A member of the RNA family "U4 spliceosomal RNA" from Selaginella moellendorffii, 146 nucleotides long. A search with the family's covariance model found it, with a score of 106 bits. From the family's description: U4 small nuclear RNA (U4 snRNA) is a component of the major U2-dependent spliceosome.
[Rfam]
RNA sequence: AUCUUUGCGCUUGGGGCAAUGACGCAGUUUAUGAGGUUUUACCGAGACGCGUCAAUUGCUGGUUGAAAACUAUUUCCAAACCCCCUCGUCGUGUCUCCCUCGGGAGGCCGUCGAGAAUUUCUGGAAGGCCCGCCCUAGGCUCGGGC
Numbered sequence: 001a002u003c004u005u006u007g008c009g010c011u012u013g014g015g016g017c018a019a020u021g022a023c024g025c026a027g028u029u030u031a032u033g034a035g036g037u038u039u040u041a042c043c044g045a046g047a048c049g050c051g052u053c054a055a056u057u058g059c060u061g062g063u064u065g066a067a068a069a070c071u072a073u074u075u076c077c078a079a080a081c082c083c084c085c086u087c088g089u090c091g092u093g094u095c096u097c098c099c100u101c102g103g104g105a106g107g108c109c110g111u112c113g114a115g116a117a118u119u120u121c122u123g124g125a126a127g128g129c130c131c132g133c134c135c136u137a138g139g140c141u142c143g144g145g146c
Stems, first nucleotide, its partner, number of pairs: 021053005027048003035043003085115004090110002093108006128146004